The family of this 134-nucleotide RNA from Alligator mississippiensis is "Small nucleolar RNA SNORA44".
On this family, see Huttenhofer et al., EMBO J 2001: "RNomics: an experimental approach that identifies 201 candidates for novel, small, non-messenger RNAs in mouse".
Rfam links the family to the GO terms nucleolus and RNA processing.
Lineage of the source: Eukaryota > Bilateria > Craniata > Crocodylia > Alligator.
Rfam classes the family as an H/ACA-box small nucleolar RNA.
ACA44 is a member of the H/ACA class of snoRNA that guide the sites of modification of uridines to pseudouridines.
[Rfam]
RNA sequence: CUGCAUGUAAAUCCAAGAGCUGUGGCUCAACAAAAAUAGCCACAGGGUCUCCAAUUACAUGCAAUAGCAAGGAGGAGGGACUUUGAUGGCGAGGCCCCUGAUGCCUGUAGCUGUCACUCACCUCUCCUACAAUG
Numbered sequence: 001c002u003g004c005a006u007g008u009a010a011a012u013c014c015a016a017g018a019g020c021u022g023u024g025g026c027u028c029a030a031c032a033a034a035a036a037u038a039g040c041c042a043c044a045g046g047g048u049c050u051c052c053a054a055u056u057a058c059a060u061g062c063a064a065u066a067g068c069a070a071g072g073a074g075g076a077g078g079g080a081c082u083u084u085g086a087u088g089g090c091g092a093g094g095c096c097c098c099u100g101a102u103g104c105c106u107g108u109a110g111c112u113g114u115c116a117c118u119c120a121c122c123u124c125u126c127c128u129a130c131a132a133u134g
Base pairs, nucleotide, nucleotide: 013045019040020039021038022037023036074127075126076125077124078123079122089114090113092106093105094104